[Rfam]
RNA sequence: UACUAGAGUAGAAGCGGUCAGGGGCUAGGCUCCGGGACAUUGCUCUUUGG
Numbered sequence: 001u002a003c004u005a006g007a008g009u010a011g012a013a014g015c016g017g018u019c020a021g022g023g024g025c026u027a028g029g030c031u032c033c034g035g036g037a038c039a040u041u042g043c044u045c046u047u048u049g050g
Base pairs, nucleotide, nucleotide: 005046006045007044008043009042010041015035018037019036021033022032023031024030025029
RNA: Xanthine riboswitch aptamer (NMT1 RNA)